[Rfam]
RNA sequence: ACAAGUUUGAGGCCAUAGCAGAAGAGCUCAUGGUGCAGCAUUGUCAGAUUCCAAUGAAUCUGUGAAUUCUGCU
Numbered sequence: 001a002c003a004a005g006u007u008u009g010a011g012g013c014c015a016u017a018g019c020a021g022a023a024g025a026g027c028u029c030a031u032g033g034u035g036c037a038g039c040a041u042u043g044u045c046a047g048a049u050u051c052c053a054a055u056g057a058a059u060c061u062g063u064g065a066a067u068u069c070u071g072c073u
Base pairs, nucleotide, nucleotide: 009041012039013038017073018072019071020070021069022068023067024036026034045062046061047060048059049058050057051056

Background:
This 73-nucleotide RNA from Alligator mississippiensis belongs to the Rfam family "Mammalian CPEB3 ribozyme". The literature on the family includes a 2006 paper in Science by Salehi-Ashtiani et al., "A genomewide search for ribozymes reveals an HDV-like sequence in the human CPEB3 gene". The family's consensus secondary structure is taken from published work.